[Rfam]
RNA sequence: AUGUAUCACUAGGGGAGCCAAUAUGGCUGAGAUUGAAGAGUUAUUCAAACCCUUUGCACCUGAUCUGGAUAAUACCAGCGUAGGGAAGUGGUCACUCAAUGCA
Numbered sequence: 001a002u003g004u005a006u007c008a009c010u011a012g013g014g015g016a017g018c019c020a021a022u023a024u025g026g027c028u029g030a031g032a033u034u035g036a037a038g039a040g041u042u043a044u045u046c047a048a049a050c051c052c053u054u055u056g057c058a059c060c061u062g063a064u065c066u067g068g069a070u071a072a073u074a075c076c077a078g079c080g081u082a083g084g085g086a087a088g089u090g091g092u093c094a095c096u097c098a099a100u101g102c103a
Stems, first nucleotide, its partner, number of pairs: 006091005011053004017027004034047004059084004065078004
A member of the RNA family "TPP riboswitch aptamer (THI element)" from Paenibacillus nasutitermitis, 103 nucleotides long. The base pairs follow the family's consensus structure, which is taken from published work. The source organism's lineage runs through Bacteria, Bacillati, Bacillota, Bacilli and Paenibacillus. Rfam links the family to the GO term thiamine pyrophosphate binding. The match comes from Rfam's covariance-model search (82 bits).